The record is an 84-nucleotide RNA sequence from aff. Roholtiella sp. LEGE 12411, which matches "Photosynthesis regulatory RNA1" in Rfam.
A search with the family's covariance model found it, with a score of 55 bits.
The literature on the family includes a 2014 paper in Plant Cell by Georg et al., "The small regulatory RNA SyR1/PsrR1 controls photosynthetic functions in cyanobacteria".
Its family is annotated with regulation of photosynthesis and regulation of translation in the Gene Ontology.
Rfam classes the family as a small RNA.
The base pairs follow the family's consensus structure, which was predicted with CMfinder.
Taxonomically the source falls in Roholtiella (Bacteria, Cyanobacteriota, Cyanophyceae, Nostocales).
Rfam's curators write: Formerly known as Syr1 discovered in Synechocystis sp PCC 6803, is a regulatory factor controlling photosynthetic functions. PsrR1 interacts with the ribosome binding regions of several photosynthesis-related mRNAs. In particular, psaL mRNA is processed by RNase E only in the presence of PsrR1.

RNA sequence: AAGACUUUUUAAAUUUAAUAUUUGUAUCUUUAAUUGUCAUUCUGACUUCUCUCUCCUACCUCGGUUAGUUUCGCCGGGGUUUUU
Numbered sequence: 001a002a003g004a005c006u007u008u009u010u011a012a013a014u015u016u017a018a019u020a021u022u023u024g025u026a027u028c029u030u031u032a033a034u035u036g037u038c039a040u041u042c043u044g045a046c047u048u049c050u051c052u053c054u055c056c057u058a059c060c061u062c063g064g065u066u067a068g069u070u071u072c073g074c075c076g077g078g079g080u081u082u083u084u
Stems, first nucleotide, its partner, number of pairs: 058080008